This 142-nucleotide RNA from Elaeis guineensis belongs to the Rfam family "small nucleolar RNA snoR135". Gene Ontology terms of the family: RNA processing and nucleolus. On this family, see Chen and Wu, Nucleic Acids Res 2009: "Mining small RNA sequencing data: a new approach to identify small nucleolar RNAs in Arabidopsis". The organism belongs to Elaeis, within Eukaryota. The family's RNA type in Rfam is H/ACA-box small nucleolar RNA.
RNA sequence: GCAGCAGGAUAGUGUAUAUCGGUGCUAUGCUCUUAUGUAGUUUCCGAACGUGUUUCUUGCUACAGUAACUUUGGGGAAAAUGGGCAGUUGGGUUACACCAUAAUCUUUCAUUGGUAUCUCAACAAUCAUUUUUCCCAUAUUC
Numbered sequence: 001g002c003a004g005c006a007g008g009a010u011a012g013u014g015u016a017u018a019u020c021g022g023u024g025c026u027a028u029g030c031u032c033u034u035a036u037g038u039a040g041u042u043u044c045c046g047a048a049c050g051u052g053u054u055u056c057u058u059g060c061u062a063c064a065g066u067a068a069c070u071u072u073g074g075g076g077a078a079a080a081u082g083g084g085c086a087g088u089u090g091g092g093u094u095a096c097a098c099c100a101u102a103a104u105c106u107u108u109c110a111u112u113g114g115u116a117u118c119u120c121a122a123c124a125a126u127c128a129u130u131u132u133u134c135c136c137a138u139a140u141u142c
Base pairs, nucleotide, nucleotide: 004060005059006058007057008056009054015039016038017037018036019035073136074135075134076133077132078131079130080129081128082127083126087123088122089121090120091119092118